[Rfam]
RNA: mir-2807 microRNA precursor family
RNA sequence: UUAAAACUCAUUCCAGUGUAUGGUGUUGGAAAGUUUGACUACGUUUGCCGCUAGGUGCGCUGUUCCAACUGCAUAUAAAUUUGAGUUA
Numbered sequence: 001u002u003a004a005a006a007c008u009c010a011u012u013c014c015a016g017u018g019u020a021u022g023g024u025g026u027u028g029g030a031a032a033g034u035u036u037g038a039c040u041a042c043g044u045u046u047g048c049c050g051c052u053a054g055g056u057g058c059g060c061u062g063u064u065c066c067a068a069c070u071g072c073a074u075a076u077a078a079a080u081u082u083g084a085g086u087u088a
Stems, first nucleotide, its partner, number of pairs: 010080003017077004022072001025069007033061001038056003043051002